[Rfam]
RNA sequence: AGUUCCGGUGCCGCCGACGACUGAAAGCAAAGAAACGAGGGAGAAAGAACCUCCACCAAGCCCCACCCCUCCCGCCCGUGGCACGCGCUCACUCGGGCGGGUGAACAUCCCCGGCUCGGCUGGAUUUCGUGGCCCCCAGCGGCUCUACGCUCAGCCCAAGGCAGCACGACAACCGCAGACAUGCGACGGCCCCCGCCGGGACGGCAAUCCCAGUGCGAGGGCCUGACCACCGAGGAAGAGAGAGCUUCCCG
Number, nucleotide and partner (000 for none) at each position: 001a000002g000003u000004u000005c000006c000007g231008g230009u229010g228011c000012c000013g000014c000015c000016g076017a000018c074019g073020a000021c000022u000023g000024a000025a000026a000027g000028c000029a000030a000031a000032g000033a000034a000035a000036c000037g000038a000039g000040g000041g000042a000043g000044a000045a000046a000047g000048a000049a000050c000051c000052u000053c000054c000055a000056c000057c000058a000059a000060g000061c000062c000063c000064c000065a000066c000067c000068c000069c000070u000071c000072c000073c019074g018075c000076c016077c000078g000079u000080g000081g000082c000083a000084c000085g000086c000087g000088c000089u104090c103091a102092c101093u100094c099095g000096g000097g000098c000099g094100g093101g092102u091103g090104a089105a000106c000107a000108u000109c000110c000111c000112c000113g000114g000115c000116u000117c000118g000119g155120c154121u153122g152123g151124a000125u000126u000127u000128c000129g000130u000131g000132g000133c000134c000135c000136c000137c000138a000139g000140c000141g000142g000143c000144u000145c000146u000147a000148c000149g000150c000151u123152c122153a121154g120155c119156c000157c000158a000159a000160g000161g000162c000163a000164g000165c000166a000167c000168g000169a000170c000171a000172a000173c000174c000175g000176c000177a000178g000179a000180c000181a000182u000183g000184c000185g000186a000187c000188g223189g222190c221191c220192c219193c000194c217195g216196c215197c000198g211199g210200g209201a208202c000203g000204g000205c000206a000207a000208u201209c200210c199211c198212a000213g000214u000215g196216c195217g194218a000219g192220g191221g190222c189223c188224u000225g000226a000227c000228c010229a009230c008231c007232g000233a000234g249235g248236a247237a246238g245239a000240g000241a000242g000243a000244g000245c238246u237247u236248c235249c234250c000251g000

Rfam assigns this 251-nucleotide sequence to the family "Streptomyces sRNA 4677". The match comes from Rfam's covariance-model search (218 bits). Located in the intergenic region between anti-sigma factor SCO4677 gene and a putative regulatory protein gene SCO4676. scr4677 expression requires the SCO4677 activity and scr4677 sRNA itself seem to affect the levels of the SCO4676-associated transcripts. A reference for the family is Hindra et al. (2014), "Complex intra-operonic dynamics mediated by a small RNA in Streptomyces coelicolor", PLoS One.